[Rfam]
RNA: c-di-AMP riboswitch aptamer (ydaO/yuaA leader)
Organism: Nonomuraea polychroma
RNA sequence: GGCCGGUGCCCGCCUAAUCCCGGGCGUGUUGCCCGGGAGCCGGGGACCCAUCGCAAUUGGGGUGAAUCCACUUCGGUGGUAGGGACCUCCCAUUCCCGAACCCGUCAGCUAACCCGGUCGGCAGAGGGAGAGGAACA
Numbered sequence: 001g002g003c004c005g006g007u008g009c010c011c012g013c014c015u016a017a018u019c020c021c022g023g024g025c026g027u028g029u030u031g032c033c034c035g036g037g038a039g040c041c042g043g044g045g046a047c048c049c050a051u052c053g054c055a056a057u058u059g060g061g062g063u064g065a066a067u068c069c070a071c072u073u074c075g076g077u078g079g080u081a082g083g084g085a086c087c088u089c090c091c092a093u094u095c096c097c098g099a100a101c102c103c104g105u106c107a108g109c110u111a112a113c114c115c116g117g118u119c120g121g122c123a124g125a126g127g128g129a130g131a132g133g134a135a136c137a
Stems, first nucleotide, its partner, number of pairs: 012122003018038009039118006049059002060103003068079004082097004